Rfam assigns this 367-nucleotide RNA sequence from Thiobacillus denitrificans to the family "transfer-messenger RNA". Rfam's curators write: Bacterial tmRNA, also known as 10Sa RNA or SsrA, is named for its dual tRNA and mRNA-like properties. Its role is to liberate the mRNA from a stalled ribosome.

[Rfam]
RNA sequence: GGGGCCGACCUGGCUUCGACGUGGGUCGCAAAGCAGCGUAGGGCAUACCGAGGGUCAGAGCACCUCGUAAAUCCAACUGAAAAACUUUAGUCGCAAACGACGAAAACUACGCCCUGGCCGCUUAAGGUCCAGGACUCACACUAGCCUGUUCAUGGGCUAGGCCGGGUCAAACCGGCAGUGAGUUAAUUCACAUGAAAUCGCGCUUGUCCGGGUCGCUUGGGCAGGUGCUAAAUCCAAGGCGGCUCGGCGAAAUCCAGCCUGUUCGGCGGGCGUGAUGGAGCUUAAAGCUUAAAAACACCGGACUAAGUAUGUAGAACUGCCUGUAGAGGGCUUGCGGACGCGGGUUCGAUUCCCGCCGGCUCCACCA
Number, nucleotide and partner (000 for none) at each position: 001g363002g362003g361004g360005c359006c358007g357008a000009c000010c000011u000012g000013g000014c000015u000016u000017c000018g000019a000020c336021g335022u334023g333024g332025g331026u330027c329028g000029c000030a000031a000032a000033g324034c323035a322036g321037c000038g320039u319040a318041g317042g000043g000044c311045a310046u309047a308048c307049c067050g066051a065052g064053g063054g000055u080056c079057a078058g077059a000060g000061c000062a000063c053064c052065u051066c050067g049068u000069a000070a000071a000072u000073c000074c000075a000076a000077c058078u057079g056080a055081a000082a000083a000084a000085c000086u000087u000088u000089a000090g000091u000092c000093g000094c000095a000096a000097a000098c000099g000100a000101c000102g000103a000104a000105a000106a000107c000108u000109a000110c000111g000112c000113c133114c000115u000116g000117g000118c132119c000120g130121c000122u000123u000124a000125a000126g000127g000128u000129c000130c120131a000132g118133g113134a183135c182136u181137c180138a179139c178140a000141c000142u159143a158144g157145c156146c000147u000148g000149u196150u195151c194152a193153u192154g191155g000156g145157c144158u143159a142160g000161g000162c000163c000164g000165g000166g000167u000168c000169a000170a000171a000172c000173c000174g000175g000176c000177a000178g139179u138180g137181a136182g135183u134184u000185a000186a000187u000188u000189c000190a000191c154192a153193u152194g151195a150196a149197a000198u000199c000200g228201c227202g226203c225204u224205u223206g222207u221208c220209c000210g000211g244212g243213u242214c241215g240216c239217u000218u000219g000220g208221g207222c206223a205224g204225g203226u202227g201228c200229u000230a000231a000232a000233u000234c000235c000236a000237a000238g000239g216240c215241g214242g213243c212244u211245c000246g281247g000248c000249g000250a000251a276252a000253u274254c000255c272256a000257g000258c269259c268260u000261g303262u302263u301264c300265g298266g000267c000268g259269g258270g000271c000272g255273u000274g253275a000276u251277g000278g000279a000280g000281c246282u000283u000284a000285a000286a000287g000288c000289u000290u000291a000292a000293a000294a000295a000296c000297a000298c265299c000300g264301g263302a262303c261304u000305a000306a000307g048308u047309a046310u045311g044312u000313a000314g000315a000316a000317c041318u040319g039320c038321c036322u035323g034324u033325a000326g000327a000328g000329g027330g026331c025332u024333u023334g022335c021336g020337g000338a000339c000340g356341c355342g354343g353344g352345u000346u000347c000348g000349a000350u000351u000352c344353c343354c342355g341356c340357c007358g006359g005360c004361u003362c002363c001364a000365c000366c000367a000
The family's consensus secondary structure is taken from published work. A reference for the family is Williams and Bartel (1996), "Phylogenetic analysis of tmRNA secondary structure", RNA.